[Rfam]
RNA sequence: UGUCUCCUCCACCUCUCCAAUGGUGGACUUAGCCCCCGGAUCGCAAGGCCCGGGGGCUUUUUU
Numbered sequence: 001u002g003u004c005u006c007c008u009c010c011a012c013c014u015c016u017c018c019a020a021u022g023g024u025g026g027a028c029u030u031a032g033c034c035c036c037c038g039g040a041u042c043g044c045a046a047g048g049c050c051c052g053g054g055g056g057c058u059u060u061u062u063u
Stems, first nucleotide, its partner, number of pairs: 008027006031058008
A member of the RNA family "Betaproteobacteria toxic small RNA" from Ramlibacter sp. Leaf400, 63 nucleotides long. Overexpression in amino aid rich medium attenuates growth, suggesting role in repressing amino acid intake and metabolism. Lineage of the source: Bacteria > Pseudomonadota > Betaproteobacteria > Comamonadaceae > Ramlibacter.